[Rfam]
RNA: Small nucleolar RNA SNORD70
Organism: Neodiprion lecontei
RNA sequence: UUUCUUAUUAUCGAUGAUGCAUACUAUUGUAAAUUGAAAUACUUUUAUGAUGAAUAAACAUUUCGUCACUACCACUGAGAUAUUGGAUAA
Numbered sequence: 001u002u003u004c005u006u007a008u009u010a011u012c013g014a015u016g017a018u019g020c021a022u023a024c025u026a027u028u029g030u031a032a033a034u035u036g037a038a039a040u041a042c043u044u045u046u047a048u049g050a051u052g053a054a055u056a057a058a059c060a061u062u063u064c065g066u067c068a069c070u071a072c073c074a075c076u077g078a079g080a081u082a083u084u085g086g087a088u089a090a
Stems, first nucleotide, its partner, number of pairs: 001090002005086003009082004